Overview
A member of the RNA family "pemK RNA" from Hungateiclostridiaceae bacterium KB18, 116 nucleotides long. The source organism's lineage runs through Bacteria, Bacillati, Bacillota, Clostridia and Oscillospiraceae.
[Rfam]
RNA sequence: ACAAGGAUACUCCCGUCCAGCCACAGCCCGAGCGUGACAGCGGUUUUCGGUCGUGAAGCCGUCGCAGGCAAUGGGGGCGGUCGCAUGAGAACCAUGCGGGGAUGAGAUUCCCGUGG
Dot-bracket structure: ...........(((((((........................................................))))))(((.(((.....))).)))((.........)))...
It scores 49 bits against the family's covariance model.